The record is a 67-nucleotide RNA from Streptomyces sp. SAT1, which matches "Fluoride riboswitch aptamer (crcB RNA motif)" in Rfam. The literature on the family includes a 2017 paper in Nat Chem Biol by Zhao et al., "An excited state underlies gene regulation of a transcriptional riboswitch". Taxonomically the source falls in Streptomyces (Bacteria, Bacillati, Kitasatosporales, Streptomycetaceae).
Nucleotides: 067
Base pairs, nucleotide, nucleotide: 010025011024012023013022016058017057018056019055020054021053033048034047035046036045
Number, partner (000 for none) and nucleotide at each position: 001000a002000c003000g004000u005000g006000c007000c008000g009000g010025g011024g012023c013022g014000a015000u016058g017057a018056g019055g020054c021053u022013c023012g024011c025010c026000c027000u028000u029000g030000a031000c032000c033048g034047c035046a036045c037000g038000c039000a040000c041000c042000g043000c044000c045036g046035u047034g048033c049000u050000g051000a052000u053021g054020g055019c056018c057017u058016c059000u060000a061000c062000g063000c064000g065000g066000a067000c